[Rfam]
RNA sequence: UUCCAUAAGGGCAAGUAUUACCCUUAUGAAAGCAUAAGUAGCAGUAGCA
Number, nucleotide and partner (000 for none) at each position: 001u031002u030003c000004c028005a027006u026007a025008a024009g023010g022011g021012c000013a000014a000015g000016u000017a000018u000019u000020a000021c011022c010023c009024u008025u007026a006027u005028g004029a000030a002031a001032g000033c000034a000035u000036a000037a000038g000039u000040a000041g000042c000043a000044g000045u000046a000047g000048c000049a000
Source information
Shown here is a 49-nucleotide RNA sequence, a member of the family "ssNA-helicase RNA". Rfam classes the family as a small RNA.